[Rfam]
RNA sequence: AUCUAUACAAUUGAAUAAUAAAAACUCAGUGCAGAAUUACUGAACCAGUAAGCUGAGGUGCGAUGGACAUGAAAAGGUCAGGACAAACAACGAAACAGGGAUACCUGUGGAUAGUCACUGUUUCAAUAAUCGUGAGGUUAUUGAUGGAGAGGGUGGAACCCCAAACCUAAGUCGUAGCGCCUUUGCUAUUGCAAGUAAAAGCAGAGUGCGAGUCGAGUCAUAAUAGAAGCGGUUGUUAAUAGCUUCCGCCGAAUCGGAGUUAGGUGCUAACGAGUGGUGUCGAGUACAAACCUACGAAAUACCAAUAAGGCUUUUGUCGUGAAGCGAAGAAAUUCGUGUAUAAGGCUUGCAUGUCGCGUACGAGUAGCUCAAGACAAGACUCAGGAAUUAGAAUAUAAGUUACCAAGUUGAUAAAGGGUAUUUAAAAAUUCUAUGCCGUAAGGUGAGUGAAAGUUGUGGGUAACCAAUCCCGCAUGGGACGAUGGCUUUGGAGAGGUCUCCAGCUGGGGUAUGUUAGGUCAAAGUCGCUCUUUGGUCUUCGGACAUAUCUCCCCAUUGGCUGAAUAUACUUGAAGAUAGCAUAAGGUAGGGUGAAAAUCCUUUAUUAUUCGAUAAAUACU
Numbered sequence: 001a002u003c004u005a006u007a008c009a010a011u012u013g014a015a016u017a018a019u020a021a022a023a024a025c026u027c028a029g030u031g032c033a034g035a036a037u038u039a040c041u042g043a044a045c046c047a048g049u050a051a052g053c054u055g056a057g058g059u060g061c062g063a064u065g066g067a068c069a070u071g072a073a074a075a076g077g078u079c080a081g082g083a084c085a086a087a088c089a090a091c092g093a094a095a096c097a098g099g100g101a102u103a104c105c106u107g108u109g110g111a112u113a114g115u116c117a118c119u120g121u122u123u124c125a126a127u128a129a130u131c132g133u134g135a136g137g138u139u140a141u142u143g144a145u146g147g148a149g150a151g152g153g154u155g156g157a158a159c160c161c162c163a164a165a166c167c168u169a170a171g172u173c174g175u176a177g178c179g180c181c182u183u184u185g186c187u188a189u190u191g192c193a194a195g196u197a198a199a200a201g202c203a204g205a206g207u208g209c210g211a212g213u214c215g216a217g218u219c220a221u222a223a224u225a226g227a228a229g230c231g232g233u234u235g236u237u238a239a240u241a242g243c244u245u246c247c248g249c250c251g252a253a254u255c256g257g258a259g260u261u262a263g264g265u266g267c268u269a270a271c272g273a274g275u276g277g278u279g280u281c282g283a284g285u286a287c288a289a290a291c292c293u294a295c296g297a298a299a300u301a302c303c304a305a306u307a308a309g310g311c312u313u314u315u316g317u318c319g320u321g322a323a324g325c326g327a328a329g330a331a332a333u334u335c336g337u338g339u340a341u342a343a344g345g346c347u348u349g350c351a352u353g354u355c356g357c358g359u360a361c362g363a364g365u366a367g368c369u370c371a372a373g374a375c376a377a378g379a380c381u382c383a384g385g386a387a388u389u390a391g392a393a394u395a396u397a398a399g400u401u402a403c404c405a406a407g408u409u410g411a412u413a414a415a416g417g418g419u420a421u422u423u424a425a426a427a428a429u430u431c432u433a434u435g436c437c438g439u440a441a442g443g444u445g446a447g448u449g450a451a452a453g454u455u456g457u458g459g460g461u462a463a464c465c466a467a468u469c470c471c472g473c474a475u476g477g478g479a480c481g482a483u484g485g486c487u488u489u490g491g492a493g494a495g496g497u498c499u500c501c502a503g504c505u506g507g508g509g510u511a512u513g514u515u516a517g518g519u520c521a522a523a524g525u526c527g528c529u530c531u532u533u534g535g536u537c538u539u540c541g542g543a544c545a546u547a548u549c550u551c552c553c554c555a556u557u558g559g560c561u562g563a564a565u566a567u568a569c570u571u572g573a574a575g576a577u578a579g580c581a582u583a584a585g586g587u588a589g590g591g592u593g594a595a596a597a598u599c600c601u602u603u604a605u606u607a608u609u610c611g612a613u614a615a616a617u618a619c620u
Stems, first nucleotide, its partner, number of pairs: 007617001012612001015609001018606001021603002025057005037051005059176006080119002082116003087112001093108001096107004121146001123144009151161004187579001190576001194571002200567001201561001204357001206355001207351008215313005235243002254297003258293002264287004271282003275304004314377005324337005361453001367448005436542003459471002475555003478504001506552004516539002518536007589600004
This 620-nucleotide RNA sequence belongs to the Rfam family "ROOL RNA".
The family's RNA type in Rfam is small RNA.
The sequence is in the family's curated seed alignment.
Firmicutes, Fusobacteria (1 example), Tenericutes (1 example).